[Rfam]
RNA sequence: UCAGGGGACACACAUGAGCUCGGCAGGAGCGGGGGACCCAAGGUAAGUGCCGGUCCAGGAGCAGGCCCUGACAGGGUGUCUGCGAGCGGGGCGGCUUGGGGUGAAGUCGUGCAUCGCAAGGUGUGCGACCGGACCACUUCGCCAGUCCGAACCCGACAGCUCACCUCGUAGGCGUACUACGCGAAGGUGA
Numbered sequence: 001u002c003a004g005g006g007g008a009c010a011c012a013c014a015u016g017a018g019c020u021c022g023g024c025a026g027g028a029g030c031g032g033g034g035g036a037c038c039c040a041a042g043g044u045a046a047g048u049g050c051c052g053g054u055c056c057a058g059g060a061g062c063a064g065g066c067c068c069u070g071a072c073a074g075g076g077u078g079u080c081u082g083c084g085a086g087c088g089g090g091g092c093g094g095c096u097u098g099g100g101g102u103g104a105a106g107u108c109g110u111g112c113a114u115c116g117c118a119a120g121g122u123g124u125g126c127g128a129c130c131g132g133a134c135c136a137c138u139u140c141g142c143c144a145g146u147c148c149g150a151a152c153c154c155g156a157c158a159g160c161u162c163a164c165c166u167c168g169u170a171g172g173c174g175u176a177c178u179a180c181g182c183g184a185a186g187g188u189g190a
Base pairs, nucleotide, nucleotide: 001027002026029169030168031167032166033165034164039098040097041096042095099154100153101152107128108127109126110125111124112123113122131148132147133146134145
A member of the RNA family "c-di-AMP riboswitch aptamer (ydaO/yuaA leader)" from Streptomyces sp. Root264, 190 nucleotides long.
Lineage of the source: Bacteria > Actinomycetota > Actinomycetes > Streptomycetaceae > Streptomyces.
Rfam links the family to the GO terms regulation of gene expression and cyclic-di-AMP binding.
This family represents a conserved RNA structure found upstream of the ydaO and yuaA genes in Bacillus subtilis and related genes in other bacteria.
On this family, see Barrick et al., Proc Natl Acad Sci U S A 2004: "New RNA motifs suggest an expanded scope for riboswitches in bacterial genetic control".